The family of this 100-nucleotide RNA sequence from Flavobacterium sp. HMWF030 is "Flavo-1 RNA". By type it is a small RNA. A search with the family's covariance model found it, with a score of 45 bits. Lineage of the source: Bacteria > Pseudomonadati > Bacteroidota > Flavobacteriia > Flavobacterium.

RNA sequence: UUUUAGCCCUGAUGGAAGCGGCAUCUCCCGAUUUAGAAAAACAAGGCUAUUUAGCCGUAGUUUUUGUUUAUCGUGAAUAUAGCGGACAGCAGGACACGAG
Numbered sequence: 001u002u003u004u005a006g007c008c009c010u011g012a013u014g015g016a017a018g019c020g021g022c023a024u025c026u027c028c029c030g031a032u033u034u035a036g037a038a039a040a041a042c043a044a045g046g047c048u049a050u051u052u053a054g055c056c057g058u059a060g061u062u063u064u065u066g067u068u069u070a071u072c073g074u075g076a077a078u079a080u081a082g083c084g085g086a087c088a089g090c091a092g093g094a095c096a097c098g099a100g
Base pairs, nucleotide, nucleotide: 009092010091011090013088014087018083019082023078024077027075029073030072031071032070